The family of this 157-nucleotide RNA sequence from Populus tomentosa is "MIR2912 microRNA precursor family".
Nucleotides: 157
Base pairs, nucleotide, nucleotide: 003155005153006152007151008148009147011146012145013144014143015142016141017140018139019138020137021135022134023133024132025131027130028129035124036123042120043119044118046116049113050112051111052110055106056105061100064098073089074088075087
Number, partner (000 for none) and nucleotide at each position: 001000u002000c003155u004000a005153g006152a007151a008148c009147u010000c011146g012145a013144g014143a015142u016141a017140u018139g019138g020137g021135c022134u023133a024132a025131a026000u027130a028129c029000a030000u031000a032000a033000c034000a035124a036123u037000u038000c039000u040000a041000u042120a043119g044118g045000c046116u047000a048000c049113a050112a051111g052110a053000c054000a055106g056105a057000u058000u059000c060000u061100g062000a063000c064098u065000u066000c067000u068000c069000c070000g071000u072000u073089g074088u075087u076000g077000c078000u079000a080000u081000a082000a083000u084000u085000u086000g087075a088074a089073c090000u091000u092000g093000a094000a095000a096000a097000c098064a099000a100061c101000c102000u103000u104000u105056u106055u107000g108000a109000a110052u111051c112050u113049u114000g115000g116046a117000c118044u119043c120042u121000a122000u123036a124035u125000g126000a127000a128000a129028g130027u131025u132024u133023u134022a135021g136000g137020c138019c139018u140017a141016u142015g143014u144013c145012u146011u147009a148008g149000c150000u151007u152006u153005c154000c155003a156000u157000c
It scores 117 bits against the family's covariance model.
The family's consensus secondary structure was predicted with RNAalifold.